Notes
A member of the RNA family "MIR7729 microRNA precursor family" from Brachypodium distachyon, 86 nucleotides long. The sequence is in the family's curated seed alignment. Rfam links the family to the GO terms RISC complex and miRNA-mediated post-transcriptional gene silencing. Taxonomically the source falls in Brachypodium (Eukaryota, Tracheophyta, Spermatophyta, Magnoliopsida).
RNA sequence: CUCGAUUUACUGUUUUCAUAGGCCAUGUAGAGCUAAUUUUGUGGUGCAAAGUUGGAGCAAUGGUGGUGGUUUGGAGGAGUUUGGAG
Numbered sequence: 001c002u003c004g005a006u007u008u009a010c011u012g013u014u015u016u017c018a019u020a021g022g023c024c025a026u027g028u029a030g031a032g033c034u035a036a037u038u039u040u041g042u043g044g045u046g047c048a049a050a051g052u053u054g055g056a057g058c059a060a061u062g063g064u065g066g067u068g069g070u071u072u073g074g075a076g077g078a079g080u081u082u083g084g085a086g
Base pairs, nucleotide, nucleotide: 001086002085003084005082009080010079011078013077014076015075016074017073018072022067023066024065025064026063030058033055034054035053036052037051038050039049040048041047042046